[Rfam]
RNA sequence: UCUGGGAGAUGAUGUGAACAAAAGGCCGAAUUGUAGCGCCCCCACCAGGCAGUGUGUUCUCAGAGCAGGGUGCCGUGACAAAGACCGACCGAAGCGUUCCUCUGAUCCCAGA
Numbered sequence: 001u002c003u004g005g006g007a008g009a010u011g012a013u014g015u016g017a018a019c020a021a022a023a024g025g026c027c028g029a030a031u032u033g034u035a036g037c038g039c040c041c042c043c044a045c046c047a048g049g050c051a052g053u054g055u056g057u058u059c060u061c062a063g064a065g066c067a068g069g070g071u072g073c074c075g076u077g078a079c080a081a082a083g084a085c086c087g088a089c090c091g092a093a094g095c096g097u098u099c100c101u102c103u104g105a106u107c108c109c110a111g112a
Stems, first nucleotide, its partner, number of pairs: 001112007014102001016100001025034002035098004042091001052073002055067005074087002
A member of the RNA family "Small nucleolar RNA SNORD89" from Oreochromis niloticus, 112 nucleotides long. A search with the family's covariance model found it, with a score of 49 bits. snoRNA HBII-289 belongs to the family of C/D snoRNAs. It is the human orthologue of the mouse MBII-289 and has no identified RNA target. By type it is a C/D-box small nucleolar RNA. Pairs were carried over by alignment from the consensus structure, which was predicted with RNAalifold. The source organism's lineage runs through Eukaryota, Teleostei, African cichlids, Oreochromini and Oreochromis.